chrB-a RNA: an 80-nucleotide RNA sequence from Hahella sp. CCB-MM4.
RNA sequence: ACGUCGGGGUUGCGAUCACCCCGUAAGGCACAGGCCCAAGAUUCGCAUCCUUAUCACCUGUUUUAGGAGGAUGUGUAAUG
Numbered sequence: 001a002c003g004u005c006g007g008g009g010u011u012g013c014g015a016u017c018a019c020c021c022c023g024u025a026a027g028g029c030a031c032a033g034g035c036c037c038a039a040g041a042u043u044c045g046c047a048u049c050c051u052u053a054u055c056a057c058c059u060g061u062u063u064u065a066g067g068a069g070g071a072u073g074u075g076u077a078a079u080g
Stems, first nucleotide, its partner, number of pairs: 005023006045074006

The organism belongs to Hahella, within Bacteria.
It scores 59 bits against the family's covariance model.
It is annotated as a cis-regulatory element.